[Rfam]
Small nucleolar RNA SNORA26: a 118-nucleotide RNA sequence from Acipenser ruthenus. The organism belongs to Acipenser, within Eukaryota.

RNA sequence: AAGCCCAUUUAAGACUGAUUUUGUGUUUUAAGUGACCAACACGGGGGUAGACUAGUUCUCUCAUAAACCUGAAGCGGAGGCUAAACCCCUGUUUUGGAUCCUGUCGGGAGGUACAAAU
Dot-bracket structure: ..((((..((.....((.(.(..........)..).))....)))))).........(((((......(((((((.(.(.......).).)))))))........)))))........
A reference for the family is Huttenhofer et al. (2001), "RNomics: an experimental approach that identifies 201 candidates for novel, small, non-messenger RNAs in mouse", EMBO J. Rfam links the family to the GO terms RNA processing and nucleolus. The base pairs follow the family's consensus structure, which was predicted with RNAalifold. The family is grouped with related families in Rfam's "SNORA27 clan". The snoRNA HBI-6 belong to the H/ACA family of snoRNAs, guiding the pseudouridylation of position U4522 if the 28S rRNA. HBI-6 is the human orthologue of mouse MBI-6 snoRNA.